RNA sequence: CCCAAGGUGCAGUGCUGCAUCUCUGGUCAGUUGUGAGUCUGAGAUGAAGCACUGUAGCUCAGGAAGGG
Number, nucleotide and partner (000 for none) at each position: 001c063002c062003c000004a000005a000006g058007g000008u056009g055010c054011a053012g052013u051014g050015c049016u048017g000018c046019a045020u044021c043022u042023c041024u000025g039026g038027u036028c035029a000030g000031u000032u000033g000034u000035g028036a027037g000038u026039c025040u000041g023042a022043g021044a020045u019046g018047a000048a016049g015050c014051a013052c012053u011054g010055u009056a008057g000058c006059u000060c000061a000062g002063g001064a000065a000066g000067g000068g000